[Rfam]
The record is a 136-nucleotide RNA sequence from Cnephaeus nilssonii, which matches "U8 small nucleolar RNA" in Rfam. For this family Rfam cites "The U8 snoRNA gene family: identification and characterization of distinct, functional U8 genes in Xenopus" (Peculis et al., Gene, 2001). Pairs were carried over by alignment from the consensus structure, which is taken from published work. A search with the family's covariance model found it, with a score of 123 bits. The source organism's lineage runs through Eukaryota, Deuterostomia, Amniota, Vespertilionidae and Cnephaeus.
RNA sequence: CCCUCAGGUAGGAUAAUCCUUACCUGUUCCUCCUUUUGGAGGGCAGAUUGGAACAUGAUGAUUGGAGAUCGCAUGAUUCGUGAUCAACGUCUCUGCGUAAUCAGGACUUGCAACACCCUGAUUGCAAAAAAAAAAU
Number, nucleotide and partner (000 for none) at each position: 001c000002c000003c000004u000005c000006a000007g000008g000009u000010a000011g000012g000013a000014u000015a000016a000017u000018c000019c000020u000021u000022a000023c000024c046025u045026g044027u000028u043029c042030c041031u040032c039033c038034u000035u000036u000037u000038g033039g032040a031041g030042g029043g028044c026045a025046g024047a000048u000049u000050g000051g000052a000053a000054c000055a000056u000057g000058a000059u000060g000061a000062u000063u000064g000065g000066a000067g000068a000069u000070c000071g000072c000073a000074u000075g093076a092077u000078u000079c089080g088081u086082g000083a000084u000085c000086a081087a000088c080089g079090u000091c000092u076093c075094u000095g000096c000097g125098u124099a123100a122101u121102c120103a119104g118105g117106a000107c000108u000109u000110g000111c000112a000113a000114c000115a000116c000117c105118c104119u103120g102121a101122u100123u099124g098125c097126a000127a000128a000129a000130a000131a000132a000133a000134a000135a000136u000